[Rfam]
The record is a 33-nucleotide RNA sequence, which matches "DUF805b RNA" in Rfam.
RNA sequence: AACGCGGAUACCGAAAAGCGAAUAGAGUAGGUA
Numbered sequence: 001a002a003c004g005c006g007g008a009u010a011c012c013g014a015a016a017a018g019c020g021a022a023u024a025g026a027g028u029a030g031g032u033a
Base pairs, nucleotide, nucleotide: 003020004019005018010032011031012030
Dot-bracket structure: ..(((....[[[.....))).........]]].